[Rfam]
RNA sequence: GGUGUGCGAUAGACUUACCUCUACGUGGUGCACAGUGGGCAACGUAUAUUCAUACGGCAAAAGGUCUAU
Number, nucleotide and partner (000 for none) at each position: 001g036002g000003u034004g033005u032006g031007c030008g000009a000010u000011a000012g000013a000014c000015u000016u000017a029018c028019c027020u000021c000022u000023a000024c000025g000026u000027g019028g018029u017030g007031c006032a005033c004034a003035g000036u001037g000038g000039g000040c000041a000042a000043c056044g055045u054046a053047u052048a000049u000050u000051c000052a047053u046054a045055c044056g043057g000058c000059a000060a000061a000062a000063g000064g000065u000066c000067u000068a000069u000
RNA: HDV ribozyme from F. prausnitzii
Organism: Rodentolepis nana